Rfam assigns this 112-nucleotide RNA sequence from Bacillus manliponensis to the family "epsC RNA".
NCBI's taxonomy places the organism under Bacteria, Bacillati, Bacillota, Caryophanales, Bacillus.
The family has 30 seed sequences and 450 matches in Rfam 15.1.
[Rfam]
RNA sequence: UGGUGAUGUCUCCUUACCGUUAUCAAUGGGGGCACUCGGUCAUACUGUGGGUUAUUGAAAACCUUAGACGCAAGUCGUCGAGAGUGUGAUGUGAGGGAGGGUUAGAUGCCCA
Numbered sequence: 001u002g003g004u005g006a007u008g009u010c011u012c013c014u015u016a017c018c019g020u021u022a023u024c025a026a027u028g029g030g031g032g033c034a035c036u037c038g039g040u041c042a043u044a045c046u047g048u049g050g051g052u053u054a055u056u057g058a059a060a061a062c063c064u065u066a067g068a069c070g071c072a073a074g075u076c077g078u079c080g081a082g083a084g085u086g087u088g089a090u091g092u093g094a095g096g097g098a099g100g101g102u103u104a105g106a107u108g109c110c111c112a
Stems, first nucleotide, its partner, number of pairs: 001019004007034007035095004039090008049064005067079004099111004